RNA: c-di-GMP-I-GGC riboswitch aptamer
RNA sequence: ACCGAUAAAGGCAAACCAUCCGAAAGGAUGGGACGCAAAGCCAAAGGGCCUAAUCGUAAGAAUGGCAGCCGAGCUACCGAAG
Numbered sequence: 001a002c003c004g005a006u007a008a009a010g011g012c013a014a015a016c017c018a019u020c021c022g023a024a025a026g027g028a029u030g031g032g033a034c035g036c037a038a039a040g041c042c043a044a045a046g047g048g049c050c051u052a053a054u055c056g057u058a059a060g061a062a063u064g065g066c067a068g069c070c071g072a073g074c075u076a077c078c079g080a081a082g
Stems, first nucleotide, its partner, number of pairs: 003079002011036002016031006034068001039075003046070002048066003